[Rfam]
RNA sequence: GGCUUAAGAAUGGGCAACGGAAUCCCAAAAGCAGCUGUUUUGCUCUAAUUUCCAGCUGCACUUGGAUUCCGUUCCUUGCUCUUUUGCCC
Numbered sequence: 001g002g003c004u005u006a007a008g009a010a011u012g013g014g015c016a017a018c019g020g021a022a023u024c025c026c027a028a029a030a031g032c033a034g035c036u037g038u039u040u041u042g043c044u045c046u047a048a049u050u051u052c053c054a055g056c057u058g059c060a061c062u063u064g065g066a067u068u069c070c071g072u073u074c075c076u077u078g079c080u081c082u083u084u085u086g087c088c089c
Stems, first nucleotide, its partner, number of pairs: 009080001011078003017072009027063002031059007
Dot-bracket structure: ........(.(((...(((((((((.((..(((((((...............)))))))..)))))))))))...))).).........
Background:
The family of this 89-nucleotide RNA sequence from Notechis scutatus is "mir-191 microRNA precursor family". Pairs were carried over by alignment from the consensus structure, which was predicted with RNAalifold. It scores 87 bits against the family's covariance model. NCBI's taxonomy places the organism under Eukaryota, Opisthokonta, Metazoa, Elapidae, Notechis. The literature on the family includes a 2008 paper in Genome Res by Murchison et al., "Conservation of small RNA pathways in platypus". Rfam 15.1 lists 621 matches to the family in 455 species.